[Rfam]
RNA sequence: GCAGUCUUGUCCGAGUGGUUAAGGAGAUUGACUAGAAAUCAAUUGGGCUUUGCCCGCGUAGGUUCGAAUCCUGCAGACUGCG
Numbered sequence: 001g002c003a004g005u006c007u008u009g010u011c012c013g014a015g016u017g018g019u020u021a022a023g024g025a026g027a028u029u030g031a032c033u034a035g036a037a038a039u040c041a042a043u044u045g046g047g048c049u050u051u052g053c054c055c056g057c058g059u060a061g062g063u064u065c066g067a068a069u070c071c072u073g074c075a076g077a078c079u080g081c082g
Base pairs, nucleotide, nucleotide: 001081002080003079004078005077006076007075010025011024012023027043028042029041030040031039058074059073060072061071062070
Rfam assigns this 82-nucleotide RNA from Caenorhabditis angaria to the family "tRNA".
The organism belongs to Caenorhabditis, within Eukaryota.